[Rfam]
RNA: Small nucleolar RNA SNORD25
Organism: Prunus yedoensis
RNA sequence: GGCAACUGUGAUGAACCUUCAGACCUGUAAUGAUAUGCGGAUAUGAGCGCAGAUCUAAGAACAUCUAAGGGACUGAGUUUUA
Numbered sequence: 001g002g003c004a005a006c007u008g009u010g011a012u013g014a015a016c017c018u019u020c021a022g023a024c025c026u027g028u029a030a031u032g033a034u035a036u037g038c039g040g041a042u043a044u045g046a047g048c049g050c051a052g053a054u055c056u057a058a059g060a061a062c063a064u065c066u067a068a069g070g071g072a073c074u075g076a077g078u079u080u081u082a
Stems, first nucleotide, its partner, number of pairs: 002081001004079003